[Rfam]
RNA sequence: CAGUCCGUUUCGUGGGACACGACGACCGGCCCUCGCCCUCCCCCGCUACCCUGGCCGCGUGCCCCUUCCGCUGAAGGGCGCAAAGCCGACAGCCGUCGCAUCCCAGGGAGAACACCCAUG
Numbered sequence: 001c002a003g004u005c006c007g008u009u010u011c012g013u014g015g016g017a018c019a020c021g022a023c024g025a026c027c028g029g030c031c032c033u034c035g036c037c038c039u040c041c042c043c044c045g046c047u048a049c050c051c052u053g054g055c056c057g058c059g060u061g062c063c064c065c066u067u068c069c070g071c072u073g074a075a076g077g078g079c080g081c082a083a084a085g086c087c088g089a090c091a092g093c094c095g096u097c098g099c100a101u102c103c104c105a106g107g108g109a110g111a112a113c114a115c116c117c118a119u120g
Stems, first nucleotide, its partner, number of pairs: 060082003065076004085099002088097003
Rfam assigns this 120-nucleotide RNA sequence from Streptomyces sp. SirexAA-E to the family "Streptomyces-metH RNA". The family's RNA type in Rfam is small RNA.